[Rfam]
RNA: Group II catalytic intron D1-D4-4
RNA sequence: UAACGGGUGAAAGUCCCGUUGUGGUAAAAGCCGGAGCCAUGUAGCUUGGAUGGCAGGGGGUGAUGGAAACGUUGCCUUCUGAAGCCCAUCUACAAAGUCGGCGUAAGGCCGGCGAGCGAAUAUCCGGGUUGUAACGUAC
Numbered sequence: 001u002a003a004c005g006g007g008u009g010a011a012a013g014u015c016c017c018g019u020u021g022u023g024g025u026a027a028a029a030g031c032c033g034g035a036g037c038c039a040u041g042u043a044g045c046u047u048g049g050a051u052g053g054c055a056g057g058g059g060g061u062g063a064u065g066g067a068a069a070c071g072u073u074g075c076c077u078u079c080u081g082a083a084g085c086c087c088a089u090c091u092a093c094a095a096a097g098u099c100g101g102c103g104u105a106a107g108g109c110c111g112g113c114g115a116g117c118g119a120a121u122a123u124c125c126g127g128g129u130u131g132u133a134a135c136g137u138a139c
Stems, first nucleotide, its partner, number of pairs: 020041005049090005054081006063072001065070001097113006116132003